[Rfam]
This 95-nucleotide RNA sequence from Ornithorhynchus anatinus belongs to the Rfam family "Small nucleolar RNA SNORD91 family". Lineage of the source: Eukaryota > Eumetazoa > Bilateria > Gnathostomata > Ornithorhynchus. Pairs were carried over by alignment from the consensus structure. For this family Rfam cites "RNomics: an experimental approach that identifies 201 candidates for novel, small, non-messenger RNAs in mouse" (Huttenhofer et al., EMBO J, 2001).
RNA sequence: UGGAGAAGCUAAUGAUGAGGAAAGCUAUAAUGUCUGAACCUGGCUGAGGCAUCUUUGUGAUGCAUUCUCUUUUUAGCUCUGAGGUUUCUCCAUAA
Numbered sequence: 001u002g003g004a005g006a007a008g009c010u011a012a013u014g015a016u017g018a019g020g021a022a023a024g025c026u027a028u029a030a031u032g033u034c035u036g037a038a039c040c041u042g043g044c045u046g047a048g049g050c051a052u053c054u055u056u057g058u059g060a061u062g063c064a065u066u067c068u069c070u071u072u073u074u075a076g077c078u079c080u081g082a083g084g085u086u087u088c089u090c091c092a093u094a095a
Base pairs, nucleotide, nucleotide: 004089005088006087007086008085009084010083
Rfam's curators put it in the seed alignment.